[Rfam]
RNA sequence: UGGAGAUUGAUCAUCUCCAUAGGGUAUGACAGAAAAGUUGGUGUGGUCAAGCACCCAACAUUGUAUAGUAAGGAAGGCUGUGGUGGCCACCAUGUGACCUGGAGACAGGAGGCAUGAGAACCCAUACCAAGGGUCCUGAAAGUUCAGAGGUAUCAUUAACAUUAGUGAGACCCCUCUGUUGAAGGUAUAAUGUAAUCCUUCUACCCACCCA
Numbered sequence: 001u002g003g004a005g006a007u008u009g010a011u012c013a014u015c016u017c018c019a020u021a022g023g024g025u026a027u028g029a030c031a032g033a034a035a036a037g038u039u040g041g042u043g044u045g046g047u048c049a050a051g052c053a054c055c056c057a058a059c060a061u062u063g064u065a066u067a068g069u070a071a072g073g074a075a076g077g078c079u080g081u082g083g084u085g086g087c088c089a090c091c092a093u094g095u096g097a098c099c100u101g102g103a104g105a106c107a108g109g110a111g112g113c114a115u116g117a118g119a120a121c122c123c124a125u126a127c128c129a130a131g132g133g134u135c136c137u138g139a140a141a142g143u144u145c146a147g148a149g150g151u152a153u154c155a156u157u158a159a160c161a162u163u164a165g166u167g168a169g170a171c172c173c174c175u176c177u178g179u180u181g182a183a184g185g186u187a188u189a190a191u192g193u194a195a196u197c198c199u200u201c202u203a204c205c206c207a208c209c210c211a
Stems, first nucleotide, its partner, number of pairs: 001019006022206005029064002042058001045055003069139001071137004076088003081129004090118001091116004121133003145178006153168004160192004181201005
A member of the RNA family "manA RNA" from Synechococcus phage S-B05, 211 nucleotides long.
manA RNA has been located in 5'UTR regions of genes of mannose or fructose metabolism.
The family's consensus secondary structure is taken from published work.